RNA sequence: GGCUUUUUUCGCCCAAGCGGAGCUCGACCGCAAACCGAAGUAAUGGUGGCCUUUAUCGAUCAACAUCGUGCUGCAUAUGGUGUCGAGCCAAUCUGCAAGGAAUUGUCGAUUGCACCG
Numbered sequence: 001g002g003c004u005u006u007u008u009u010c011g012c013c014c015a016a017g018c019g020g021a022g023c024u025c026g027a028c029c030g031c032a033a034a035c036c037g038a039a040g041u042a043a044u045g046g047u048g049g050c051c052u053u054u055a056u057c058g059a060u061c062a063a064c065a066u067c068g069u070g071c072u073g074c075a076u077a078u079g080g081u082g083u084c085g086a087g088c089c090a091a092u093c094u095g096c097a098a099g100g101a102a103u104u105g106u107c108g109a110u111u112g113c114a115c116c117g
Stems, first nucleotide, its partner, number of pairs: 017031004078117005089112002092109002095106004